[Rfam]
RNA sequence: GUGACAGAAGAGAGUGAGCACAGGUGGUGUUUUCUUGCAUUGAUAUAUAUAUGUAUAUGCUUGAAGCUAUGCGUGCUCACUCUCUAUCUGUCAC
Numbered sequence: 001g002u003g004a005c006a007g008a009a010g011a012g013a014g015u016g017a018g019c020a021c022a023g024g025u026g027g028u029g030u031u032u033u034c035u036u037g038c039a040u041u042g043a044u045a046u047a048u049a050u051a052u053g054u055a056u057a058u059g060c061u062u063g064a065a066g067c068u069a070u071g072c073g074u075g076c077u078c079a080c081u082c083u084c085u086a087u088c089u090g091u092c093a094c
Base pairs, nucleotide, nucleotide: 001094002093003092004091005090006089007088008087010084011083012082013081014080015079016078017077018076019075020074021073024070025069026068027067028066